[Rfam]
RNA sequence: AAAAACACGAAUGUUUCAUCUCGUAUAAUCGCAGAGAUAUGGUCUGCAAGUUUCUACCGGCUCGCCGUAAAUGAGCCGACUACGAGUGAAAGUUUAUAUUUA
Numbered sequence: 001a002a003a004a005a006c007a008c009g010a011a012u013g014u015u016u017c018a019u020c021u022c023g024u025a026u027a028a029u030c031g032c033a034g035a036g037a038u039a040u041g042g043u044c045u046g047c048a049a050g051u052u053u054c055u056a057c058c059g060g061c062u063c064g065c066c067g068u069a070a071a072u073g074a075g076c077c078g079a080c081u082a083c084g085a086g087u088g089a090a091a092g093u094u095u096a097u098a099u100u101u102a
Stems, first nucleotide, its partner, number of pairs: 020086006029049001031047005058078007
RNA: Purine riboswitch aptamer
Organism: Bacillus sp. FJAT-49736